Source information
The family of this 136-nucleotide sequence from Effusibacillus lacus is "Molybdenum/Tungsten riboswitch aptamer (Moco RNA motif)". Pairs were carried over by alignment from the consensus structure, which is taken from published work. The match comes from Rfam's covariance-model search (76 bits).
[Rfam]
RNA sequence: AUGUAAUUAUAUCUCCGAAUCCGCAUUCCUAAGGUAAAAGUUCAGCAAACAUUUCACUAUGGAUAGCGGAUCGACAGGGAUAUGGCGGAAACGCUUUAUCCUCCCGAAUUUGGAAAGGAGAUUGAACAAUGGAACC
Dot-bracket structure: ..((......((((((..((((((..(((...(((....................)))..)))..)))))).....((((((.((((....)))).))))))((.......))...))))))......))......